[Rfam]
RNA sequence: GUCCUGAAUGGAAAAGAGGACAGACCCUCUCCUGGCAAGGGAGAGAGCCGGAGCCUUAAGGUCACGCUUCGGCAAAACAGAGUAACCACCAGGGAGCCGUGACCUCUCCCUGACUCC
Number, nucleotide and partner (000 for none) at each position: 001g021002u020003c019004c018005u017006g000007a000008a000009u000010g000011g000012a000013a000014a000015a000016g000017a005018g004019g003020a002021c001022a000023g000024a000025c000026c000027c045028u044029c043030u042031c041032c040033u039034g000035g000036c000037a000038a000039g033040g032041g031042a030043g029044a028045g027046a000047g073048c072049c071050g070051g069052a068053g067054c066055c000056u000057u000058a000059a000060g000061g000062u000063c000064a000065c000066g054067c053068u052069u051070c050071g049072g048073c047074a000075a000076a000077a000078c000079a000080g000081a000082g000083u000084a000085a000086c000087c000088a111089c000090c000091a000092g110093g109094g108095a107096g106097c000098c000099g000100u000101g000102a000103c000104c000105u000106c096107u095108c094109c093110c092111u088112g000113a000114c000115u000116c000117c000
Record summary: A member of the RNA family "engA RNA" from Prevotella sp. CAG:1320, 117 nucleotides long. The organism belongs to Prevotella, within Bacteria.